DUF805b RNA: a 35-nucleotide sequence from Taibaiella chishuiensis.

RNA sequence: AAGCAGUACGCCGAAAAUGCUAAUCAGAGUAGGCA
Numbered sequence: 001a002a003g004c005a006g007u008a009c010g011c012c013g014a015a016a017a018u019g020c021u022a023a024u025c026a027g028a029g030u031a032g033g034c035a
Stems, first nucleotide, its partner, number of pairs: 002021004010034003
Lineage of the source: Bacteria > Chitinophagia > Chitinophagales > Chitinophagaceae > Taibaiella. It is annotated as a cis-regulatory element.